[Rfam]
RNA sequence: GUUCCCAUGAUGUAACGGCUAGCAUACGGAGCUUAUUCCUCCGUCGCGGGGGUUCGAUUCCCUCUGGGAACA
Dot-bracket structure: (((((((..((((........)))).(((((.......)))))....(((((.......)))))))))))).

Shown here is a 72-nucleotide sequence from Yasminevirus saudimassiliense, a member of the family "tRNA".
About the family: Transfer RNA (tRNA) molecules are approximately 80 nucleotides in length.